RAGATH-18 RNA: a 64-nucleotide RNA.
The base pairs follow the family's consensus structure, which is taken from published work.
The sequence is in the family's curated seed alignment.

Nucleotides: 064
Base pairs, nucleotide, nucleotide: 001062002061003060004059005058009051010050011049012048013047021046022045023044029039030038031037
Number, partner (000 for none) and nucleotide at each position: 001062c002061c003060u004059a005058u006000g007000g008000a009051c010050u011049g012048u013047u014000a015000a016000a017000c018000a019000a020000a021046c022045u023044g024000u025000a026000g027000u028000a029039g030038c031037u032000u033000u034000u035000a036000u037031a038030g039029c040000g041000a042000g043000g044023c045022g046021g047013a048012a049011c050010a051009g052000g053000a054000u055000g056000a057000a058005a059004u060003a061002g062001g063000a064000a